[Rfam]
RNA: Ribosomal protein L10 leader
Organism: Alkaliphilus sp.
RNA sequence: AUGAAAUUCGAAUAUUCACCGUAGACAGUAGGUGCCUUAGGGCUUAAUAAUACCUGCCGAGGUUGUUUCCUAUAGAUUGAAAAACUAUAAGAGGCCUCUCUAUGUCUACGGUAGAGAGGUUUAUCAUUUGAUGA
Number, nucleotide and partner (000 for none) at each position: 001a000002u000003g000004a000005a000006a000007u000008u000009c000010g000011a000012a000013u000014a000015u000016u000017c000018a000019c000020c000021g000022u000023a000024g000025a000026c000027a000028g057029u056030a055031g054032g053033u052034g043035c042036c041037u000038u000039a000040g000041g036042g035043c034044u000045u000046a000047a000048u000049a000050a000051u000052a033053c032054c031055u030056g029057c028058c000059g000060a000061g000062g000063u000064u000065g000066u000067u000068u000069c000070c000071u000072a000073u000074a000075g000076a000077u000078u000079g000080a000081a000082a000083a000084a000085c000086u000087a000088u000089a000090a000091g000092a000093g000094g000095c119096c118097u117098c116099u115100c114101u113102a112103u111104g000105u000106c000107u000108a000109c000110g000111g103112u102113a101114g100115a099116g098117a097118g096119g095120u000121u000122u000123a000124u000125c000126a000127u000128u000129u000130g000131a000132u000133g000134a000